RNA sequence: AGACCAAGGGGCCGGGUUGUACCGCGUCAACUGGAGCGGCAUGACCUAGGGGUAAACGGGGUACCUCCGCAGCCGCGGGCCGGGUCAGGCGAGCU
Numbered sequence: 001a002g003a004c005c006a007a008g009g010g011g012c013c014g015g016g017u018u019g020u021a022c023c024g025c026g027u028c029a030a031c032u033g034g035a036g037c038g039g040c041a042u043g044a045c046c047u048a049g050g051g052g053u054a055a056a057c058g059g060g061g062u063a064c065c066u067c068c069g070c071a072g073c074c075g076c077g078g079g080c081c082g083g084g085u086c087a088g089g090c091g092a093g094c095u
Base pairs, nucleotide, nucleotide: 002086003085004084005083010081011080012079013078014047015046016045017044018043020041022039023038024037025036027034049067050066051065052064053063054062